[Rfam]
RNA sequence: ACUCUGGUUCUUUUCAGAACCACACAUACUCACAAAAGAGAUUUAU
Numbered sequence: 001a002c003u004c005u006g007g008u009u010c011u012u013u014u015c016a017g018a019a020c021c022a023c024a025c026a027u028a029c030u031c032a033c034a035a036a037a038g039a040g041a042u043u044u045a046u
Stems, first nucleotide, its partner, number of pairs: 006021006
This 46-nucleotide RNA from Patiria miniata belongs to the Rfam family "Histone 3' UTR stem-loop". About the family: The mRNAs of metazoan histone genes lack a poly-A tail. 3' end processing occurs at a site between a highly conserved stem-loop (modelled by this family) and a purine rich region around 20 nts downstream (the histone downstream element, or HDE). A reference for the family is Williams and Marzluff (1995), "The sequence of the stem and flanking sequences at the 3' end of histone mRNA are critical determinants for the binding of the stem-loop binding protein", Nucleic Acids Res. By type it is a cis-regulatory element.